A member of the RNA family "SAM riboswitch aptamer (S box leader)" from Neobacillus vireti, 103 nucleotides long. A search with the family's covariance model found it, with a score of 94 bits. The family's consensus secondary structure is taken from published work. The source organism's lineage runs through Bacteria, Bacillota, Caryophanales, Neobacillus and Neobacillus vireti.
RNA sequence: UUCUUAUCAAGAGUGGCGGAGGGACUGGCCCUACGAUGCCCGGCAACCGGUUAAUAACACGGUGCUAAAUCCAGCAGAGCAAUUUAGCUCUGGAAGAUAAGAA
Numbered sequence: 001u002u003c004u005u006a007u008c009a010a011g012a013g014u015g016g017c018g019g020a021g022g023g024a025c026u027g028g029c030c031c032u033a034c035g036a037u038g039c040c041c042g043g044c045a046a047c048c049g050g051u052u053a054a055u056a057a058c059a060c061g062g063u064g065c066u067a068a069a070u071c072c073a074g075c076a077g078a079g080c081a082a083u084u085u086a087g088c089u090c091u092g093g094a095a096g097a098u099a100a101g102a103a
Stems, first nucleotide, its partner, number of pairs: 001103008013041001015040003021031003025074004042066004047062002049058001051056001070095001075092006